[Rfam]
RNA sequence: AGCCUUCUGCAUCCGUGCUGAGAUUUCGUCACACACCAGACAACAAGGGCCGAUGAGACUUCUCAGAUAAAUGAAGCG
Numbered sequence: 001a002g003c004c005u006u007c008u009g010c011a012u013c014c015g016u017g018c019u020g021a022g023a024u025u026u027c028g029u030c031a032c033a034c035a036c037c038a039g040a041c042a043a044c045a046a047g048g049g050c051c052g053a054u055g056a057g058a059c060u061u062c063u064c065a066g067a068u069a070a071a072u073g074a075a076g077c078g
Stems, first nucleotide, its partner, number of pairs: 002077002005074002008071001011068003017062001020061003024058007
Dot-bracket structure: .((.((.(..(((...(..(((.(((((((.....................)))))))))))...)))..).)).)).
Rfam assigns this 78-nucleotide sequence from Schistosoma margrebowiei to the family "mir-3492 microRNA precursor family".
Taxonomically the source falls in Schistosoma (Eukaryota, Rhabditophora, Digenea, Strigeidida).